[Rfam]
RNA sequence: UGAUUGCUGUGAUGAUUCCUAUUAGGACGGUAUCUGAAAGGGGCGCCUUUUGUUGCACCCCAUCUGAUUAUACCAAAUCUGAAUAUGGUUUCUGAGCAAAUU
Numbered sequence: 001u002g003a004u005u006g007c008u009g010u011g012a013u014g015a016u017u018c019c020u021a022u023u024a025g026g027a028c029g030g031u032a033u034c035u036g037a038a039a040g041g042g043g044c045g046c047c048u049u050u051u052g053u054u055g056c057a058c059c060c061c062a063u064c065u066g067a068u069u070a071u072a073c074c075a076a077a078u079c080u081g082a083a084u085a086u087g088g089u090u091u092c093u094g095a096g097c098a099a100a101u102u
Stems, first nucleotide, its partner, number of pairs: 002101001004099004038063001040061004
The family of this 102-nucleotide RNA from Digitaria exilis is "Small nucleolar RNA Z118/Z121/Z120".
The literature on the family includes a 2003 paper in Nucleic Acids Res by Chen et al., "The high diversity of snoRNAs in plants: identification and comparative study of 120 snoRNA genes from Oryza sativa".
It is annotated as a C/D-box small nucleolar RNA.
It scores 74 bits against the family's covariance model.